Overview
A member of the RNA family "MIR5387 microRNA precursor family" from Sorghum bicolor, 94 nucleotides long. Pairs were carried over by alignment from the consensus structure, which was predicted with RNAalifold. Rfam 15.1 lists 1,029 matches to the family in 9 species. The match comes from Rfam's covariance-model search (84 bits). Lineage of the source: Eukaryota > Streptophyta > Embryophyta > Liliopsida > Sorghum.
RNA sequence: UGGUAAGACGAACCGGUGCUAAAGGGUUCCUGCCACGACAGCACCUGUAAGUAGCCGUUGGGCAGGACCCUUUAGCACCGGUUCGUGUUACGAA
Numbered sequence: 001u002g003g004u005a006a007g008a009c010g011a012a013c014c015g016g017u018g019c020u021a022a023a024g025g026g027u028u029c030c031u032g033c034c035a036c037g038a039c040a041g042c043a044c045c046u047g048u049a050a051g052u053a054g055c056c057g058u059u060g061g062g063c064a065g066g067a068c069c070c071u072u073u074a075g076c077a078c079c080g081g082u083u084c085g086u087g088u089u090a091c092g093a094a
Base pairs, nucleotide, nucleotide: 003091004090005089006088008086009085010084011083012082013081014080015079016078017077018076019075020074021073022072023071024070025069026068027067029066030065034061036060038058039057045051046050